Shown here is a 203-nucleotide RNA from Gordonia bronchialis, a member of the family "Actinobacteria sRNA Ms_IGR-5". NCBI's taxonomy places the organism under Bacteria, Bacillati, Gordoniaceae, Gordonia, Gordonia bronchialis. By type it is a small RNA. The match comes from Rfam's covariance-model search (109 bits).
RNA sequence: ACACAAGGAAGGAGGUGGUCUGAAGUUGAUUGACAUACGGACACGUGAGGUGACCAUCCGUUAGACGCUGACCGUGUGGCAUUCGUGUCGCACCGUGGUGGACACACCCGGCGCCUGCGAAUACCCGAUGGUCACCCGACCCCCGCACCCCGACCCGUCCGGUCGGCCGGGCCCCAUCCGGGGCGGUGCGGGGGUCGUUCCAU
Numbered sequence: 001a002c003a004c005a006a007g008g009a010a011g012g013a014g015g016u017g018g019u020c021u022g023a024a025g026u027u028g029a030u031u032g033a034c035a036u037a038c039g040g041a042c043a044c045g046u047g048a049g050g051u052g053a054c055c056a057u058c059c060g061u062u063a064g065a066c067g068c069u070g071a072c073c074g075u076g077u078g079g080c081a082u083u084c085g086u087g088u089c090g091c092a093c094c095g096u097g098g099u100g101g102a103c104a105c106a107c108c109c110g111g112c113g114c115c116u117g118c119g120a121a122u123a124c125c126c127g128a129u130g131g132u133c134a135c136c137c138g139a140c141c142c143c144c145g146c147a148c149c150c151c152g153a154c155c156c157g158u159c160c161g162g163u164c165g166g167c168c169g170g171g172c173c174c175c176a177u178c179c180g181g182g183g184c185g186g187u188g189c190g191g192g193g194g195u196c197g198u199u200c201c202a203u
Stems, first nucleotide, its partner, number of pairs: 014058006059119003064114001067112004074107005137197013150166005